[Rfam]
RNA sequence: CGUAUGGUGUUUGACAGCAAGACUGAUCAGAUUGCGAUACGGCCCAACGAGGU
Dot-bracket structure: (((((.((..(((((((.....))).))))...)).)))))............
Shown here is a 53-nucleotide RNA, a member of the family "L31-Gammaproteobacteria ribosomal protein leader".
Its Rfam clan is "Ribosomal Protein L31 Leader clan".
By type it is a cis-regulatory leader.
It is one of the family's seed sequences.
For this family Rfam cites "Discovery of 20 novel ribosomal leader candidates in bacteria and archaea" (Eckert and Weinberg, BMC Microbiol, 2020).